Annotation
This 102-nucleotide RNA sequence from Bacillus sp. MRMR6 belongs to the Rfam family "Purine riboswitch aptamer".

RNA sequence: GGUGUAAAUUAAUAGGUUCUUCAUAUAUCCUCGAAAAUAAGGUUCGAGAGUCUCUACCGGGUCGCCGUAAAUGACCUGACUAUGAAGGCGGAGUUUUUUUCU
Dot-bracket structure: .................((((((((....((((((.......)))))).........(((((((.......)))))))..))))))))..............
Numbered sequence: 001g002g003u004g005u006a007a008a009u010u011a012a013u014a015g016g017u018u019c020u021u022c023a024u025a026u027a028u029c030c031u032c033g034a035a036a037a038u039a040a041g042g043u044u045c046g047a048g049a050g051u052c053u054c055u056a057c058c059g060g061g062u063c064g065c066c067g068u069a070a071a072u073g074a075c076c077u078g079a080c081u082a083u084g085a086a087g088g089c090g091g092a093g094u095u096u097u098u099u100u101c102u
Stems, first nucleotide, its partner, number of pairs: 018088008030048006058078007